[Rfam]
Description:
Rfam assigns this 84-nucleotide sequence from Protea cynaroides to the family "Plastid-clpP 5UTR RNA". From the family's description: Plastid clpP is a non-coding RNA (ncRNA) recognised in plastids. It was found in the prime untranslated region (5UTR) of a protease complex subunit (clpP) in plastids, suggesting a posible cis-regulatory function. The family's consensus secondary structure was predicted with LocARNA.
RNA sequence: UAUUUUGUUGGUAAUAAUGGAACAGGCAAGAACAAAGAGAAGCAGAUCUAUUCUAUACCCGAUAACUACCAAUACGUAAUGAGG
Numbered sequence: 001u002a003u004u005u006u007g008u009u010g011g012u013a014a015u016a017a018u019g020g021a022a023c024a025g026g027c028a029a030g031a032a033c034a035a036a037g038a039g040a041a042g043c044a045g046a047u048c049u050a051u052u053c054u055a056u057a058c059c060c061g062a063u064a065a066c067u068a069c070c071a072a073u074a075c076g077u078a079a080u081g082a083g084g
Stems, first nucleotide, its partner, number of pairs: 003037002006034004058083001060081001067074002